[Rfam]
RNA sequence: CUAUGACUUUUUUAAGUCAUGGCGGAAGGAG
Numbered sequence: 001c002u003a004u005g006a007c008u009u010u011u012u013u014a015a016g017u018c019a020u021g022g023c024g025g026a027a028g029g030a031g
Stems, first nucleotide, its partner, number of pairs: 001022008
RNA: L31-Firmicutes ribosomal protein leader